[Rfam]
RNA sequence: GCUGAGCUGAGUAACGUUAGCUUGUAACCUAAGUGGGGGCAAUAAAGUGAUGGGACAUGGCUCGGGCUAUGCUCGGUCGGGCUGUUAGAUGCAUAAUUCUGGCCUGCCCGCUCCAAGUUAAGAGCUGAGUCAUGGGAUUUGGGCGAAGGCUCAGGUCUCUUGGCUCCUAAACUGGAGGGCACAGCGUGAGGCUGGUUUAACAGAGCAGCGAGCACCUCCGGCUCCUGACAGUGGAGGGAUAACAGGCUGCAGCACUUUCAGCCCACCAUGACCGGGUGUACCAAGCUCCUGAACCAUCAUUUUU
Numbered sequence: 001g002c003u004g005a006g007c008u009g010a011g012u013a014a015c016g017u018u019a020g021c022u023u024g025u026a027a028c029c030u031a032a033g034u035g036g037g038g039g040c041a042a043u044a045a046a047g048u049g050a051u052g053g054g055a056c057a058u059g060g061c062u063c064g065g066g067c068u069a070u071g072c073u074c075g076g077u078c079g080g081g082c083u084g085u086u087a088g089a090u091g092c093a094u095a096a097u098u099c100u101g102g103c104c105u106g107c108c109c110g111c112u113c114c115a116a117g118u119u120a121a122g123a124g125c126u127g128a129g130u131c132a133u134g135g136g137a138u139u140u141g142g143g144c145g146a147a148g149g150c151u152c153a154g155g156u157c158u159c160u161u162g163g164c165u166c167c168u169a170a171a172c173u174g175g176a177g178g179g180c181a182c183a184g185c186g187u188g189a190g191g192c193u194g195g196u197u198u199a200a201c202a203g204a205g206c207a208g209c210g211a212g213c214a215c216c217u218c219c220g221g222c223u224c225c226u227g228a229c230a231g232u233g234g235a236g237g238g239a240u241a242a243c244a245g246g247c248u249g250c251a252g253c254a255c256u257u258u259c260a261g262c263c264c265a266c267c268a269u270g271a272c273c274g275g276g277u278g279u280a281c282c283a284a285g286c287u288c289c290u291g292a293a294c295c296a297u298c299a300u301u302u303u304u
Stems, first nucleotide, its partner, number of pairs: 001040003004023007028037003044303010056291002059288002061285002064282002069279010079264006087256001090254002094251001100249007108238002111236005117229004122224004127166006134159011173220006185210003192203003

Plant signal recognition particle RNA: a 304-nucleotide RNA. Rfam classes the family as a non-coding RNA gene. Its Rfam clan is "SRP clan". The family's consensus secondary structure is taken from published work.